[Rfam]
Notes:
The record is an 82-nucleotide RNA from Actinoplanes friuliensis, which matches "SAH (S-adenosyl-L-homocysteine) riboswitch aptamer" in Rfam.
RNA sequence: CCGGUCGAGAGGCGCUGCGACGGAUCACCUGGUCCGCCACGCUCGACCGCAGGCCAAGACGACGAAAGGGCGCCUUCCGUAA
Numbered sequence: 001c002c003g004g005u006c007g008a009g010a011g012g013c014g015c016u017g018c019g020a021c022g023g024a025u026c027a028c029c030u031g032g033u034c035c036g037c038c039a040c041g042c043u044c045g046a047c048c049g050c051a052g053g054c055c056a057a058g059a060c061g062a063c064g065a066a067a068g069g070g071c072g073c074c075u076u077c078c079g080u081a082a
Stems, first nucleotide, its partner, number of pairs: 002049007021036006

Taxonomically the source falls in Actinoplanes friuliensis (Bacteria, Bacillati, Micromonosporales, Actinoplanes). It scores 38 bits against the family's covariance model.